[Rfam]
RNA sequence: UAGCCUGAAGUGAUGUUAUGGAUUCAUGUCUCUUCUCUGAGAUGUAUUGUGGAGACAACUAGGUGCAUAUCUGAUCAGGCUU
Dot-bracket structure: .((((........................................................................)))).